[Rfam]
RNA: BsrG
RNA sequence: AAAUAGAUUAGUAAUCUCAUGGGUGGUUGGCACAAUGAUCCCUUAUGUCACGGCAAAGCGAGACAGGAGGGAGGUGCUGCCUUUUUGACUGUAUUUGAAUCCCUUGUAAUUAUGAUUAGCUUCGGUUCGCUAAUUAUUGCUUUAAUUACUUUGGCACUUUCAAUGACACAAAAAAAGUAACCCACCUGUGAGUUAGCGCUCGGAUGGGUUACUUUGCCUUAAGAGCCAAUCCCCAUUGAAGGGAACUAGUCUAUUUUGCCGCUCGGAUGCUACCAACAUCUAAG
Numbered sequence: 001a002a003a004u005a006g007a008u009u010a011g012u013a014a015u016c017u018c019a020u021g022g023g024u025g026g027u028u029g030g031c032a033c034a035a036u037g038a039u040c041c042c043u044u045a046u047g048u049c050a051c052g053g054c055a056a057a058g059c060g061a062g063a064c065a066g067g068a069g070g071g072a073g074g075u076g077c078u079g080c081c082u083u084u085u086u087g088a089c090u091g092u093a094u095u096u097g098a099a100u101c102c103c104u105u106g107u108a109a110u111u112a113u114g115a116u117u118a119g120c121u122u123c124g125g126u127u128c129g130c131u132a133a134u135u136a137u138u139g140c141u142u143u144a145a146u147u148a149c150u151u152u153g154g155c156a157c158u159u160u161c162a163a164u165g166a167c168a169c170a171a172a173a174a175a176a177g178u179a180a181c182c183c184a185c186c187u188g189u190g191a192g193u194u195a196g197c198g199c200u201c202g203g204a205u206g207g208g209u210u211a212c213u214u215u216g217c218c219u220u221a222a223g224a225g226c227c228a229a230u231c232c233c234c235a236u237u238g239a240a241g242g243g244a245a246c247u248a249g250u251c252u253a254u255u256u257u258g259c260c261g262c263u264c265g266g267a268u269g270c271u272a273c274c275a276a277c278a279u280c281u282a283a284g
Stems, first nucleotide, its partner, number of pairs: 001256005007250003011246001014230002016192008025182004033076002039072006087155001089153001091151001100115002124147004202218002232243003262284002265281005271275001